About this RNA
The family of this 345-nucleotide RNA from Eubacterium oxidoreducens is "transfer-messenger RNA". NCBI's taxonomy places the organism under Bacteria, Bacillati, Bacillota, Eubacteriaceae, Eubacterium. Gene Ontology term of the family: RNA catabolic process. About the family: Bacterial tmRNA, also known as 10Sa RNA or SsrA, is named for its dual tRNA and mRNA-like properties. The family's consensus secondary structure is taken from published work.
[Rfam]
RNA sequence: GGGCUAGUAAAGGUUUCGACGGGGAUUUGGAAGUUGGAGAAGCUAUCCGCAGGAUGAUGCGUUAAAUCUCAAAACUAAAAAUAAACGCUGAAGAUACAGAUUUAGCUUUCGCUGCCUAAGCAGCGAGUGUUCGCCCCGAAGCACCUACACUUUGGGAACCGAACAUCGAACAUGUAGGAAACGACAUAUAUUAAGCUUUGCAUAUAUGGGCGUAAGAUGAAGCUACUAAAGCCGGAAGGAUGUUAGUUUCCGUCCGGGAGAGGGAAUGUAAAAGAACUGACUAUGAUAGUAGAAGUACAAUGGAAAGAUUUUCGGACACGAGUUCGAUUCUCGUCUAGUCCACUA
Number, nucleotide and partner (000 for none) at each position: 001g341002g340003g339004c338005u337006a336007g335008u000009a000010a000011a000012g000013g000014u000015u000016u000017c000018g000019a000020c314021g313022g312023g311024g310025a309026u308027u307028u306029g000030g000031a000032a000033g301034u300035u299036g298037g000038a296039g000040a000041a000042g000043c289044u288045a287046u286047c285048c061049g060050c059051a058052g000053g000054a000055u071056g070057a000058u051059g050060c049061g048062u000063u000064a000065a000066a000067u000068c000069u000070c056071a055072a000073a000074a000075c000076u000077a000078a000079a000080a000081a000082u000083a000084a000085a000086c000087g000088c000089u000090g000091a000092a000093g000094a000095u000096a000097c000098a000099g000100a000101u000102u000103u000104a000105g000106c000107u000108u127109u126110c125111g124112c123113u122114g121115c120116c000117u000118a000119a000120g115121c114122a113123g112124c111125g110126a109127g108128u165129g164130u163131u162132c161133g160134c000135c156136c155137c154138g153139a152140a151141g150142c000143a000144c178145c177146u176147a175148c174149a173150c141151u140152u139153u138154g137155g136156g135157a000158a000159c000160c133161g132162a131163a130164c129165a128166u000167c000168g000169a000170a000171c000172a000173u149174g148175u147176a146177g145178g144179a000180a000181a000182c000183g000184a000185c210186a000187u208188a207189u206190a205191u204192u000193a000194a224195g223196c222197u221198u220199u219200g000201c000202a000203u000204a191205u190206a189207u188208g187209g000210g185211c000212g000213u000214a000215a000216g000217a000218u000219g199220a198221a197222g196223c195224u194225a000226c263227u262228a000229a000230a000231g000232c257233c256234g255235g254236a000237a000238g251239g250240a249241u000242g281243u280244u279245a278246g000247u274248u273249u240250c239251c238252g000253u000254c235255c234256g233257g232258g000259a000260g000261a000262g227263g226264g000265a000266a000267u000268g000269u000270a000271a000272a000273a248274g247275a000276a000277c000278u245279g244280a243281c242282u000283a000284u000285g047286a046287u045288a044289g043290u000291a000292g000293a000294a000295g000296u038297a000298c036299a035300a034301u033302g000303g000304a000305a000306a028307g027308a026309u025310u024311u023312u022313c021314g020315g000316a000317c000318a334319c333320g332321a331322g330323u000324u000325c000326g000327a000328u000329u000330c322331u321332c320333g319334u318335c007336u006337a005338g004339u003340c002341c001342a000343c000344u000345a000